[Rfam]
RNA: Selenocysteine insertion sequence 2
Organism: Providencia alcalifaciens
RNA sequence: GUGUCUGACACGGCCCUUCGGUUGCAGGUCUGCAGCGUUCGGUCGGUAAUGGCGC
Dot-bracket structure: (((((..((.(((((....(.(.(((....)))).)....)))))))...)))))